The record is a 263-nucleotide sequence from Prunella fulvescens, which matches "Small Cajal body specific RNA 6" in Rfam. The family's consensus secondary structure is taken from published work. A reference for the family is Darzacq et al. (2002), "Cajal body-specific small nuclear RNAs: a novel class of 2'-O-methylation and pseudouridylation guide RNAs", EMBO J.
[Rfam]
RNA sequence: GGUCUGUGAUGAAUAGUAAAAGGUCUGAUUAUCCCAAGACUUGCAGUUCCAUGCCCUCUUCUCCCAGCAGUUUCUCCCCAGCCAUGGCACAGCAAUGGUGUGGCUGGCAGAGUGUUUGCUGACAGUGUGAGAUGUGCUCAGGUCAUGUUCACCUGGAGCAAUGGUGACAUGACUGAGAUCAGCAUCCAACAGUCCUGCUUGAAGGAGUUUGGGGUCUUGGAUGGGUCUAACUGGACAUGUGAUCUGACUUUUCUGCUGAGACC
Numbered sequence: 001g002g003u004c005u006g007u008g009a010u011g012a013a014u015a016g017u018a019a020a021a022g023g024u025c026u027g028a029u030u031a032u033c034c035c036a037a038g039a040c041u042u043g044c045a046g047u048u049c050c051a052u053g054c055c056c057u058c059u060u061c062u063c064c065c066a067g068c069a070g071u072u073u074c075u076c077c078c079c080a081g082c083c084a085u086g087g088c089a090c091a092g093c094a095a096u097g098g099u100g101u102g103g104c105u106g107g108c109a110g111a112g113u114g115u116u117u118g119c120u121g122a123c124a125g126u127g128u129g130a131g132a133u134g135u136g137c138u139c140a141g142g143u144c145a146u147g148u149u150c151a152c153c154u155g156g157a158g159c160a161a162u163g164g165u166g167a168c169a170u171g172a173c174u175g176a177g178a179u180c181a182g183c184a185u186c187c188a189a190c191a192g193u194c195c196u197g198c199u200u201g202a203a204g205g206a207g208u209u210u211g212g213g214g215u216c217u218u219g220g221a222u223g224g225g226u227c228u229a230a231c232u233g234g235a236c237a238u239g240u241g242a243u244c245u246g247a248c249u250u251u252u253c254u255g256c257u258g259a260g261a262c263c
Base pairs, nucleotide, nucleotide: 001263002262003261004260037245038244039243041241061207062206063205064204065121066120067119068118069117070116078107079106080105081104082103083102084101085100086099129187131186132185133184134183135182144171145170146169147168148167149166152163154161
Dot-bracket structure: ((((................................(((.(...................((((((((((.......(((((((((............)))))))))........)))))).......(.(((((........((((((..(.(......).)..))))))..........))))))................)))).................................).)))..............))))